[Rfam]
RNA sequence: CCUCUCAAGGAGCGCUGCAGCGCCGGGGGCAUCGUCCCGAUGCCCGCACCCGGUGUCAGGCUUGAGGCGUCGGGGUCACAUGGUCCCGGCCGGUCACACAGACCCCCAACGGCGCUCACCAGUU
Numbered sequence: 001c002c003u004c005u006c007a008a009g010g011a012g013c014g015c016u017g018c019a020g021c022g023c024c025g026g027g028g029g030c031a032u033c034g035u036c037c038c039g040a041u042g043c044c045c046g047c048a049c050c051c052g053g054u055g056u057c058a059g060g061c062u063u064g065a066g067g068c069g070u071c072g073g074g075g076u077c078a079c080a081u082g083g084u085c086c087c088g089g090c091c092g093g094u095c096a097c098a099c100a101g102a103c104c105c106c107c108a109a110c111g112g113c114g115c116u117c118a119c120c121a122g123u124u
Stems, first nucleotide, its partner, number of pairs: 003067006021055006
Overview
This 124-nucleotide RNA sequence from Hydrogenophaga taeniospiralis belongs to the Rfam family "SAH (S-adenosyl-L-homocysteine) riboswitch aptamer". A search with the family's covariance model found it, with a score of 47 bits. The source organism's lineage runs through Bacteria, Pseudomonadota, Betaproteobacteria, Comamonadaceae and Hydrogenophaga taeniospiralis. Gene Ontology terms of the family: regulation of gene expression and S-adenosylhomocysteine metabolic process. The family has 52 seed sequences and 1,354 matches in Rfam 15.1.